[Rfam]
A member of the RNA family "Fungal signal recognition particle RNA" from [Emmonsia] crescens, 316 nucleotides long.
It scores 145 bits against the family's covariance model.
Clan: SRP clan.
RNA sequence: CAGCUGUCAUGGUCGAAGGGAGAUCUCCCGCUUCCCCCCGCGUGUUCUGUGAUUUGAGUUUAAUCCGUUAAGCUCUAACAGCAGACUUUGGUGCCUGGUUCGAAUCGCCGGGUCGCGAGAUUUUAUAUGUAACAAUAUUUAAUCUUCUCCCACACUCGUGCGAGUAAUCCACGAUUUGGCUGUUGGCGCGCUAAGCAAUGGCCCGCAUCCUCGAGGGAAGCAAUUCUGCAGAGAUCGGGCUCCCCGGUGAUGGCGACACCAGAUUACACCGCUGCUGCAUAGACUCCAGGGGGAUUGGCUGGUCGACUUUCUUUUU
Dot-bracket structure: (.((.......)).)(((((((.....(.(((((((((.(.(..............(((((((....))))))).......(((.(..(((((.((((((((.(((((((((..................................(.((((.(.(((((.((....))))))).)....))..)).)..(...)....((((((....(((....(((....)))....)))..)))))).)))))))))..))).)))))....)))))..))))........)).))))))..)))..).....)))))))..
Numbered sequence: 001c002a003g004c005u006g007u008c009a010u011g012g013u014c015g016a017a018g019g020g021a022g023a024u025c026u027c028c029c030g031c032u033u034c035c036c037c038c039c040g041c042g043u044g045u046u047c048u049g050u051g052a053u054u055u056g057a058g059u060u061u062a063a064u065c066c067g068u069u070a071a072g073c074u075c076u077a078a079c080a081g082c083a084g085a086c087u088u089u090g091g092u093g094c095c096u097g098g099u100u101c102g103a104a105u106c107g108c109c110g111g112g113u114c115g116c117g118a119g120a121u122u123u124u125a126u127a128u129g130u131a132a133c134a135a136u137a138u139u140u141a142a143u144c145u146u147c148u149c150c151c152a153c154a155c156u157c158g159u160g161c162g163a164g165u166a167a168u169c170c171a172c173g174a175u176u177u178g179g180c181u182g183u184u185g186g187c188g189c190g191c192u193a194a195g196c197a198a199u200g201g202c203c204c205g206c207a208u209c210c211u212c213g214a215g216g217g218a219a220g221c222a223a224u225u226c227u228g229c230a231g232a233g234a235u236c237g238g239g240c241u242c243c244c245c246g247g248u249g250a251u252g253g254c255g256a257c258a259c260c261a262g263a264u265u266a267c268a269c270c271g272c273u274g275c276u277g278c279a280u281a282g283a284c285u286c287c288a289g290g291g292g293g294a295u296u297g298g299c300u301g302g303u304c305g306a307c308u309u310u311c312u313u314u315u316u
Stems, first nucleotide, its partner, number of pairs: 001015001003013002016314007028302001030299003033294006040287001042286001057074007082277003086274001089271005095262005100256003104251009147188001149186002151182002154176001156174005162169002191195001200241006210233003217226003
Rfam classes the family as a non-coding RNA gene.